[Rfam]
RNA sequence: AGGGCAACUGGCCUUGGGGGGGGGGGCUAAAUUUAUUAUUUACUUAUUUUUCUUUGUAAUCAUGAUUACAAAGAAAAAUAAGUAAAUAAUAAAUUUAGCCCCCCCCCCAAGGCCAGUUGCCCU
Numbered sequence: 001a002g003g004g005c006a007a008c009u010g011g012c013c014u015u016g017g018g019g020g021g022g023g024g025g026g027c028u029a030a031a032u033u034u035a036u037u038a039u040u041u042a043c044u045u046a047u048u049u050u051u052c053u054u055u056g057u058a059a060u061c062a063u064g065a066u067u068a069c070a071a072a073g074a075a076a077a078a079u080a081a082g083u084a085a086a087u088a089a090u091a092a093a094u095u096u097a098g099c100c101c102c103c104c105c106c107c108c109a110a111g112g113c114c115a116g117u118u119g120c121c122c123u
Stems, first nucleotide, its partner, number of pairs: 001123015017107004022103008031094003038087005047076005

Description: The record is a 123-nucleotide RNA from Strongylocentrotus purpuratus, which matches "MIR3704 microRNA precursor family" in Rfam. It scores 68 bits against the family's covariance model. Lineage of the source: Eukaryota > Deuterostomia > Camarodonta > Echinidea > Strongylocentrotus. Rfam links the family to the GO terms miRNA-mediated post-transcriptional gene silencing and RISC complex.